[Rfam]
A member of the RNA family "Small nucleolar RNA SNORA9" from Echeneis naucrates, 134 nucleotides long. Rfam 15.1 lists 1,202 matches to the family in 518 species. The family's consensus secondary structure was predicted with PFOLD. Rfam's curators write: ACA9 is a member of the H/ACA class of snoRNA that guide the sites of modification of uridines to pseudouridines. It is annotated as an H/ACA-box small nucleolar RNA.

RNA sequence: AUGCAGACAUCUAAUGAGGCCCGGCCUGCAGUGGCCGCGUCCUUUCCUGUAGUGUCUGCUAGAGAGAUGUUGGGGCUGUUUGAGGCCCUGCUGUGGCUCUUCAUGGCAGGGUUAUAGGUAAACCUCAGACAAAC
Numbered sequence: 001a002u003g004c005a006g007a008c009a010u011c012u013a014a015u016g017a018g019g020c021c022c023g024g025c026c027u028g029c030a031g032u033g034g035c036c037g038c039g040u041c042c043u044u045u046c047c048u049g050u051a052g053u054g055u056c057u058g059c060u061a062g063a064g065a066g067a068u069g070u071u072g073g074g075g076c077u078g079u080u081u082g083a084g085g086c087c088c089u090g091c092u093g094u095g096g097c098u099c100u101u102c103a104u105g106g107c108a109g110g111g112u113u114a115u116a117g118g119u120a121a122a123c124c125u126c127a128g129a130c131a132a133a134c
Stems, first nucleotide, its partner, number of pairs: 003059006017043003022037005071127005086111006093104003